[Rfam]
RNA sequence: CAAUGGCUAAGAUGCUGAGCUUGCAAUCGAAAGGUUGGUAGUUCAGCGGUUCGAAUCCCUAGUGCCAUAUAACGGGGU
Numbered sequence: 001c002a003a004u005g006g007c008u009a010a011g012a013u014g015c016u017g018a019g020c021u022u023g024c025a026a027u028c029g030a031a032a033g034g035u036u037g038g039u040a041g042u043u044c045a046g047c048g049g050u051u052c053g054a055a056u057c058c059c060u061a062g063u064g065c066c067a068u069a070u071a072a073c074g075g076g077g078u
Stems, first nucleotide, its partner, number of pairs: 014047007024037005056077004062073002
Record summary
The family of this 78-nucleotide RNA sequence from Pantherophis guttatus is "S10-Clostridia ribosomal protein leader". On this family, see Eckert and Weinberg, BMC Microbiol 2020: "Discovery of 20 novel ribosomal leader candidates in bacteria and archaea".